[Rfam]
RNA sequence: GCGCAGGUUUGGUCUAGUGGUUACUUCGAAUAGACACGAUCAUCCUCCCUACGUUGAAGAAAACCACGGACGCUGUCCUGCGUUUUU
Numbered sequence: 001g002c003g004c005a006g007g008u009u010u011g012g013u014c015u016a017g018u019g020g021u022u023a024c025u026u027c028g029a030a031u032a033g034a035c036a037c038g039a040u041c042a043u044c045c046u047c048c049c050u051a052c053g054u055u056g057a058a059g060a061a062a063a064c065c066a067c068g069g070a071c072g073c074u075g076u077c078c079u080g081c082g083u084u085u086u087u
Stems, first nucleotide, its partner, number of pairs: 002082006012071004017067004025061003
Vault RNA: an 87-nucleotide sequence from Araneus ventricosus. Rfam describes the family as follows. This family of RNAs are found as part of the enigmatic vault ribonucleoprotein complex. The complex consists of a major vault protein (MVP), two minor vault proteins (VPARP and TEP1), and several small untranslated RNA molecules. It has been suggested that the vault complex is involved in drug resistance. A search with the family's covariance model found it, with a score of 52 bits. Rfam classes the family as a non-coding RNA gene.